Overview: Shown here is a 103-nucleotide RNA from Rhodococcus sp. WMMA185, a member of the family "mraW RNA".
RNA sequence: ACCCGCGAGUGCAGCGAGGCCUCUGUCCGACGGAACCCUGACGCACUUCCCCAGCGCCAGGUUUCCUUCUCGGACAGGGACCCCGAAGCACUCGCCACGGCAA
Numbered sequence: 001a002c003c004c005g006c007g008a009g010u011g012c013a014g015c016g017a018g019g020c021c022u023c024u025g026u027c028c029g030a031c032g033g034a035a036c037c038c039u040g041a042c043g044c045a046c047u048u049c050c051c052c053a054g055c056g057c058c059a060g061g062u063u064u065c066c067u068u069c070u071c072g073g074a075c076a077g078g079g080a081c082c083c084c085g086a087a088g089c090a091c092u093c094g095c096c097a098c099g100g101c102a103a
Stems, first nucleotide, its partner, number of pairs: 010090003015085002018082002021079010032066004037061004042056003